[Rfam]
Record summary:
Rfam assigns this 207-nucleotide sequence from Sphenodon punctatus to the family "Small nucleolar RNA SNORA73 family". Pairs were carried over by alignment from the consensus structure, which is taken from published work. Its family is annotated with nucleolus and RNA processing in the Gene Ontology. The organism belongs to Sphenodon, within Eukaryota. Clan: snR30-U17 clan. By type it is an H/ACA-box small nucleolar RNA. A search with the family's covariance model found it, with a score of 185 bits. U17 (SNORA73A and SNORA73B) also known as E1 belongs to the H/ACA class of small nucleolar RNAs (snoRNAs).
RNA sequence: CCAACGUGGAUAUCCAGGGAGGUUGCUCUCCCUCGGCUCUGUCCGUGUGGCGUACGGGAGCGUAGGCCUUCGGGCUCCAUGACGUAUAGUCCCAUUCCACGCUGUUGGAGAGCAAGCUGGGCCUUUGUGUCUGCAACCUGCAUAUUCCUACAACUUCUCUGAGUCUUUGGACUGUGACUGAGGAGCUAAACCAUGCAGGAGACAUUG
Dot-bracket structure: ((((((.(((((.((..((((....)))).....))...)))))..((((.....(((((.((.(..............)...)).)..))))...))))..))))))............................(((((((..........((((((...(((....))).......)))))).......)))))))........